[Rfam]
Rfam assigns this 82-nucleotide RNA from Streptomyces purpureus to the family "nrdJ RNA". Rfam classes the family as a small RNA. The sequence is in the family's curated seed alignment.

RNA sequence: ACCUGUCGUGAGCACUGAGCGCGGUGUUCACGGCAACAGACAGAGACUGUGCCCCGGGAAGAUCUGGGCACUUCAGGGCGUU
Numbered sequence: 001a002c003c004u005g006u007c008g009u010g011a012g013c014a015c016u017g018a019g020c021g022c023g024g025u026g027u028u029c030a031c032g033g034c035a036a037c038a039g040a041c042a043g044a045g046a047c048u049g050u051g052c053c054c055c056g057g058g059a060a061g062a063u064c065u066g067g068g069c070a071c072u073u074c075a076g077g078g079c080g081u082u
Stems, first nucleotide, its partner, number of pairs: 004035013049071006056064001